[Rfam]
RNA sequence: UCCCAUCGGUCAAGUCAAAUGCCUGUCGUUCUCCAUGGACUUGCGUUGUUACAUUGAUGGAAGAUUGAAAACGACUCGCUCCCCCGCGGCCGUUAUGGUCGUGGGUAGACGUGCUACCGUCUUGGUGGCACGUCGCUAGAGUCUGCGUGUCCCGUUUGAGUUGAGGACUGCCUCUGCUUUGCCCUAGGCUUCGCAGCUUGGUGGCGGCUCUCUUAGUAACGUUUCGCACAUCU
Dot-bracket structure: ..(((((..........(((((..(((..........)))..)))))........)))))...........((((((.....(((((((((.....)))))))))..((((((((((((...))))))))))))....))))).).(((...(((.......((((..((((.((((...............))))......))))..))))......)))...)))......
Small nucleolar RNA snR191: a 233-nucleotide sequence from Didymosphaeria variabile. Its Rfam clan is "SNORA74 clan". Pairs were carried over by alignment from the consensus structure, which was predicted with WAR. On this family, see Badis et al., RNA 2003: "A snoRNA that guides the two most conserved pseudouridine modifications within rRNA confers a growth advantage in yeast". The family's RNA type in Rfam is H/ACA-box small nucleolar RNA. Rfam links the family to the GO terms nucleolus and RNA processing.